[Rfam]
RNA sequence: UACAUUUGAGUGGUAUUACUUUGUAUACUUCGAUAAUAUGGUUCGAAAGGUCUCUAGCUGCUAACCUUGAAUUAGCAGGCUACAAGGUUAAACGCAUAUACU
Numbered sequence: 001u002a003c004a005u006u007u008g009a010g011u012g013g014u015a016u017u018a019c020u021u022u023g024u025a026u027a028c029u030u031c032g033a034u035a036a037u038a039u040g041g042u043u044c045g046a047a048a049g050g051u052c053u054c055u056a057g058c059u060g061c062u063a064a065c066c067u068u069g070a071a072u073u074a075g076c077a078g079g080c081u082a083c084a085a086g087g088u089u090a091a092a093c094g095c096a097u098a099u100a101c102u
Stems, first nucleotide, its partner, number of pairs: 018088008029047005058078007